[Rfam]
RNA sequence: AUCAGGCUGCGCUUGCGGCCAGGCUGGCGCCGUCUUCACACGAUGAAGCGGCGAACCCGGUCCGACGCCCGUCGAUAACCUGGCGUCACG
Numbered sequence: 001a002u003c004a005g006g007c008u009g010c011g012c013u014u015g016c017g018g019c020c021a022g023g024c025u026g027g028c029g030c031c032g033u034c035u036u037c038a039c040a041c042g043a044u045g046a047a048g049c050g051g052c053g054a055a056c057c058c059g060g061u062c063c064g065a066c067g068c069c070c071g072u073c074g075a076u077a078a079c080c081u082g083g084c085g086u087c088a089c090g
Stems, first nucleotide, its partner, number of pairs: 005020006022062006028053005064087006
Annotation:
nhaA-II RNA: a 90-nucleotide RNA sequence. Rfam classes the family as a cis-regulatory element.